[Rfam]
Nucleotides: 055
Stems, first nucleotide, its partner, number of pairs: 002054007010029006033046004
Number, partner (000 for none) and nucleotide at each position: 001000u002054g003053g004052c005051u006050g007049a008048g009000a010029g011028g012027g013026c014025g015024a016000c017000a018000u019000u020000u021000g022000g023000u024015u025014c026013g027012c028011u029010c030000g031000u032000u033046u034045g035044g036043g037000g038000u039000u040000a041000c042000a043036c044035c045034c046033a047000u048008c049007u050006c051005g052004g053003c054002c055000u